[Rfam]
RNA sequence: CUUUGGUAAUGACCGCAAGCGGUCAUUACAGUGAAAUUAGCCGUUGGCGAGUGAAAUCUGACUUUGUCAGGUGAAAUUGCCC
Numbered sequence: 001c002u003u004u005g006g007u008a009a010u011g012a013c014c015g016c017a018a019g020c021g022g023u024c025a026u027u028a029c030a031g032u033g034a035a036a037u038u039a040g041c042c043g044u045u046g047g048c049g050a051g052u053g054a055a056a057u058c059u060g061a062c063u064u065u066g067u068c069a070g071g072u073g074a075a076a077u078u079g080c081c082c
Base pairs, nucleotide, nucleotide: 008027009026010025011024012023013022014021015020036052037051038050040048041047056072057071058070059069060068061067062066
The family of this 82-nucleotide RNA is "Gut-1 RNA". Rfam's curators put it in the seed alignment. By type it is a small RNA.